[Rfam]
mir-342 microRNA precursor family: a 97-nucleotide sequence from Oryctolagus cuniculus. On this family, see Ahn et al., Mol Hum Reprod 2010: "MicroRNA transcriptome in the newborn mouse ovaries determined by massive parallel sequencing". The family's consensus secondary structure was predicted with RNAalifold. A search with the family's covariance model found it, with a score of 97 bits.

RNA sequence: GAACCUGGGCUCGAGGUGAGGGGUGCUCUCUGUGCGUGAGGGACAUGGCAAUCGAAUUGUCUCACACAGAAAUCGCACCCUCUCCUCGGCCUGCUCA
Numbered sequence: 001g002a003a004c005c006u007g008g009g010c011u012c013g014a015g016g017u018g019a020g021g022g023g024u025g026c027u028c029u030c031u032g033u034g035c036g037u038g039a040g041g042g043a044c045a046u047g048g049c050a051a052u053c054g055a056a057u058u059g060u061c062u063c064a065c066a067c068a069g070a071a072a073u074c075g076c077a078c079c080c081u082c083u084c085c086u087c088g089g090c091c092u093g094c095u096c097a
Stems, first nucleotide, its partner, number of pairs: 012088005018082002021080006029070006037064005